Description
A member of the RNA family "c-di-GMP-II-GAG riboswitch aptamer", 88 nucleotides long. A reference for the family is Weinberg et al. (2017), "Bioinformatic analysis of riboswitch structures uncovers variant classes with altered ligand specificity", Proc Natl Acad Sci U S A. It is one of the family's seed sequences. The family is grouped with related families in Rfam's "c-di-GMP_II riboswitch clan".
RNA sequence: CUGCACACGGGAGGCUGUGAUCCGCCGGACGUACCACUGCGGCCACCGCAGUCCGGCGGGGAGCCACUGGUGAGACCGGCCCGCGAGG
Numbered sequence: 001c002u003g004c005a006c007a008c009g010g011g012a013g014g015c016u017g018u019g020a021u022c023c024g025c026c027g028g029a030c031g032u033a034c035c036a037c038u039g040c041g042g043c044c045a046c047c048g049c050a051g052u053c054c055g056g057c058g059g060g061g062a063g064c065c066a067c068u069g070g071u072g073a074g075a076c077c078g079g080c081c082c083g084c085g086a087g088g
Stems, first nucleotide, its partner, number of pairs: 004087001006085001008083004013065003022059008041077002044072004